A member of the RNA family "transfer-messenger RNA" from Candidatus Burkholderia verschuerenii, 359 nucleotides long. The family's RNA type in Rfam is non-coding RNA gene. The organism belongs to Burkholderia, within Bacteria. Pairs were carried over by alignment from the consensus structure, which is taken from published work.
[Rfam]
RNA sequence: GGGGGCGACCUGGUUUCGACAGGGGUUGUGAAGCGGUCAGGGCAUACCGAGGACCCGUCACCUCGUUAAUCAAUGGGAAAAACGUAACUGCAAACGACGAUACGUUCGCACUGGCAGCCUAAGGGCUAGCCGUCAUCUCACUAAUUCGCUGACGGGUUAGGGUAGCAAUACCACGAGAGGUCAUAUACGUCAGAUAAGCUUUGGUGGAGUCACGACGCCCGAGUCGAAAACCUAGUGAAUCGCCGUAACGCAGCGUGUUCGUCCGCGUCGUUGCGGUUAAAUCAAAAGACAGAACUAAGUAUGUAGAACUGGUCGUAGAGCGCUUCUGGACGCGGGUUCGAUUCCCGCCGCCUCCACCA
Numbered sequence: 001g002g003g004g005g006c007g008a009c010c011u012g013g014u015u016u017c018g019a020c021a022g023g024g025g026u027u028g029u030g031a032a033g034c035g036g037u038c039a040g041g042g043c044a045u046a047c048c049g050a051g052g053a054c055c056c057g058u059c060a061c062c063u064c065g066u067u068a069a070u071c072a073a074u075g076g077g078a079a080a081a082a083c084g085u086a087a088c089u090g091c092a093a094a095c096g097a098c099g100a101u102a103c104g105u106u107c108g109c110a111c112u113g114g115c116a117g118c119c120u121a122a123g124g125g126c127u128a129g130c131c132g133u134c135a136u137c138u139c140a141c142u143a144a145u146u147c148g149c150u151g152a153c154g155g156g157u158u159a160g161g162g163u164a165g166c167a168a169u170a171c172c173a174c175g176a177g178a179g180g181u182c183a184u185a186u187a188c189g190u191c192a193g194a195u196a197a198g199c200u201u202u203g204g205u206g207g208a209g210u211c212a213c214g215a216c217g218c219c220c221g222a223g224u225c226g227a228a229a230a231c232c233u234a235g236u237g238a239a240u241c242g243c244c245g246u247a248a249c250g251c252a253g254c255g256u257g258u259u260c261g262u263c264c265g266c267g268u269c270g271u272u273g274c275g276g277u278u279a280a281a282u283c284a285a286a287a288g289a290c291a292g293a294a295c296u297a298a299g300u301a302u303g304u305a306g307a308a309c310u311g312g313u314c315g316u317a318g319a320g321c322g323c324u325u326c327u328g329g330a331c332g333c334g335g336g337u338u339c340g341a342u343u344c345c346c347g348c349c350g351c352c353u354c355c356a357c358c359a
Stems, first nucleotide, its partner, number of pairs: 001355007020328007029319001033316008043303005048065005054077005110133002113130001116127003134180001136178004141160005149193006198225001200221001203218001208240001210238004242277009253266003257295004261290003332348005